[Rfam]
RNA sequence: GCGCGUGGACGACCUCGCGCUUUCAUCAUUUCGGCCGGGACGACCCGC
Numbered sequence: 001g002c003g004c005g006u007g008g009a010c011g012a013c014c015u016c017g018c019g020c021u022u023u024c025a026u027c028a029u030u031u032c033g034g035c036c037g038g039g040a041c042g043a044c045c046c047g048c
Base pairs, nucleotide, nucleotide: 001020002019003018004017005016007014008013036047037046038045039044
Guanidine-II riboswitch aptamer (mini-ykkC): a 48-nucleotide RNA sequence from Devosia epidermidihirudinis. Lineage of the source: Bacteria > Pseudomonadati > Alphaproteobacteria > Devosiaceae > Devosia.